About this RNA
Eukaryotic large subunit ribosomal RNA: a 425-nucleotide part of an RNA from Tychaedon coryphoeus.
Nucleotides: 425
Base pairs, nucleotide, nucleotide: 015039016038017037018036019035024029040413041412043410044409045408046407047406048405049402050401052399053398055391056390058388059387060386061385062384063383064152065151066150068148069147070146071145077139078138079137080136081134082133083132084131088128089127091119092118093117094116095115097113098112101109102108414418
Number, partner (000 for none) and nucleotide at each position: 001000a002000a003000g004000u005000c006000c007000g008000c009000a010000a011000g012000c013000c014000g015039g016038a017037u018036c019035c020000a021000u022000a023000a024029c025000u026000u027000c028000a029024g030000g031000a032000a033000a034000a035019g036018g037017a038016u039015u040413g041412g042000c043410u044409c045408u046407a047406g048405g049402g050401g051000a052399u053398g054000g055391g056390u057000c058388g059387g060386u061385c062384g063383g064152g065151c066150u067000g068148g069147g070146g071145c072000g073000u074000g075000a076000a077139g078138u079137g080136g081134g082133g083132g084131c085000u086000g087000g088128g089127c090000g091119u092118g093117c094116g095115c096000u097113g098112c099000g100000g101109c102108u103000g104000g105000a106000u107000g108102a109101g110000g111000a112098g113097c114000u115095g116094c117093g118092c119091g120000u121000g122000g123000g124000u125000g126000a127089g128088u129000g130000c131084g132083c133082u134081c135000c136080c137079c138078g139077u140000g141000g142000c143000c144000u145071g146070c147069c148068u149000g150066g151065g152064u153000g154000c155000a156000g157000g158000g159000g160000u161000g162000c163000g164000c165000a166000u167000g168000u169000g170000u171000g172000c173000a174000c175000g176000u177000g178000g179000u180000g181000g182000c183000g184000a185000c186000u187000c188000u189000g190000g191000a192000c193000a194000c195000g196000c197000g198000c199000c200000a201000g202000g203000c204000c205000c206000u207000u208000c209000c210000u211000g212000u213000g214000g215000a216000u217000c218000g219000c220000c221000c222000c223000c224000c225000u226000c227000u228000c229000c230000g231000c232000c233000u234000g235000c236000c237000c238000u239000c240000c241000g242000c243000c244000a245000c246000g247000g248000c249000u250000g251000g252000c253000g254000c255000c256000u257000c258000a259000g260000c261000g262000a263000c264000a265000g266000c267000c268000g269000c270000c271000g272000u273000u274000g275000u276000c277000g278000c279000u280000g281000c282000g283000u284000g285000c286000u287000g288000c289000c290000u291000c292000c293000c294000u295000g296000g297000c298000g299000g300000c301000u302000c303000g304000a305000g306000g307000c308000c309000g310000c311000c312000g313000c314000g315000g316000c317000c318000g319000g320000u321000g322000u323000c324000g325000g326000c327000c328000g329000a330000g331000c332000g333000g334000u335000u336000c337000a338000c339000u340000c341000a342000g343000g344000g345000g346000a347000g348000g349000g350000u351000c352000c353000c354000c355000a356000g357000g358000g359000g360000g361000g362000u363000c364000c365000c366000u367000g368000g369000g370000c371000c372000g373000g374000c375000a376000c377000c378000c379000u380000g381000c382000c383063u384062c385061g386060g387059c388058c389000a390056g391055c392000g393000c394000c395000u396000a397000g398053c399052a400000g401050c402049c403000g404000g405048c406047u407046u408045a409044g410043a411000a412041c413040u414418g415000g416000u417000g418414u419000g420000g421000a422000c423000c424000a425000g
Its Rfam clan is "LSU clan".